mir-128 microRNA precursor family: an 87-nucleotide RNA from Petromyzon marinus. Lineage of the source: Eukaryota > Opisthokonta > Metazoa > Petromyzontiformes > Petromyzon. The sequence is in the family's curated seed alignment.

RNA sequence: GGGUGUCCGGGCUGGAGGCCGUCACACUGCCCGAGAGCAAUGAGCCUGGCUGUCUCACAGUGAACCGGUCUCUUUCCCUGGCAACCC
Numbered sequence: 001g002g003g004u005g006u007c008c009g010g011g012c013u014g015g016a017g018g019c020c021g022u023c024a025c026a027c028u029g030c031c032c033g034a035g036a037g038c039a040a041u042g043a044g045c046c047u048g049g050c051u052g053u054c055u056c057a058c059a060g061u062g063a064a065c066c067g068g069u070c071u072c073u074u075u076c077c078c079u080g081g082c083a084a085c086c087c
Base pairs, nucleotide, nucleotide: 006081007080009078010077015072016071017070018069019068020067021066025062026061027060028059029058033056034055035054
Description
Its family is annotated with RISC complex and miRNA-mediated post-transcriptional gene silencing in the Gene Ontology.